MIR807 microRNA precursor family: a 176-nucleotide RNA from Oryza meridionalis. The match comes from Rfam's covariance-model search (163 bits).

[Rfam]
RNA sequence: AACCACACUAUCGAUGAAUGGAUUUACCCGUGAGAUGACGUGGUUAUUCCAUCUAGGAUGAGGACAUGACAUCCUAUUAAUUUUGUGCGAUGGCUGGUAAUAGGAUGCUAUGUCCUUCUCUUAGGUGAAAUAGUCACGUCAUCUCGCGGGUGAAUCUAUUCAUUGAUAGUGUGGUU
Numbered sequence: 001a002a003c004c005a006c007a008c009u010a011u012c013g014a015u016g017a018a019u020g021g022a023u024u025u026a027c028c029c030g031u032g033a034g035a036u037g038a039c040g041u042g043g044u045u046a047u048u049c050c051a052u053c054u055a056g057g058a059u060g061a062g063g064a065c066a067u068g069a070c071a072u073c074c075u076a077u078u079a080a081u082u083u084u085g086u087g088c089g090a091u092g093g094c095u096g097g098u099a100a101u102a103g104g105a106u107g108c109u110a111u112g113u114c115c116u117u118c119u120c121u122u123a124g125g126u127g128a129a130a131u132a133g134u135c136a137c138g139u140c141a142u143c144u145c146g147c148g149g150g151u152g153a154a155u156c157u158a159u160u161c162a163u164u165g166a167u168a169g170u171g172u173g174g175u176u
Base pairs, nucleotide, nucleotide: 001176002175003174004173005172006171007170009168010167011166012165013164014163015162017160018159019158021156022155023154024153025152026151027150028149030147031146032145033144035142036141037140038139039138041136042135043134044133045132046131047130048129051126052125054123055122057120058119063114064113065112070107071106072105073104074103075102076101077100078099079098

On this family, see Luo et al., FEBS Lett 2006: "Rice embryogenic calli express a unique set of microRNAs, suggesting regulatory roles of microRNAs in plant post-embryogenic development". Rfam links the family to the GO terms RISC complex and miRNA-mediated post-transcriptional gene silencing. The base pairs follow the family's consensus structure, which was predicted with WAR. Rfam 15.1 lists 1,514 matches to the family in 13 species. The source organism's lineage runs through Eukaryota, Euphyllophyta, Mesangiospermae, Oryzoideae and Oryza.